[Rfam]
RNA sequence: CUAGGGCGUCGCGACUGGCGCAUAGGGUGGGCCUGAACCACCGGGGAGCGGAAUCGUGCGGAGGCCGAGCGCCUGGGUCUUCGCG
Numbered sequence: 001c002u003a004g005g006g007c008g009u010c011g012c013g014a015c016u017g018g019c020g021c022a023u024a025g026g027g028u029g030g031g032c033c034u035g036a037a038c039c040a041c042c043g044g045g046g047a048g049c050g051g052a053a054u055c056g057u058g059c060g061g062a063g064g065c066c067g068a069g070c071g072c073c074u075g076g077g078u079c080u081u082c083g084c085g
Stems, first nucleotide, its partner, number of pairs: 003057001005055002009051004015045002017073005027041004062080005

Notes: Shown here is an 85-nucleotide RNA from Nonomuraea endophytica, a member of the family "ZMP/ZTP riboswitch aptamer (pfl RNA motif)". Its family is annotated with one-carbon metabolic process and regulation of purine nucleotide biosynthetic process in the Gene Ontology. The source organism's lineage runs through Bacteria, Actinomycetota, Actinomycetes, Streptosporangiaceae and Nonomuraea. Pairs were carried over by alignment from the consensus structure, which is taken from published work.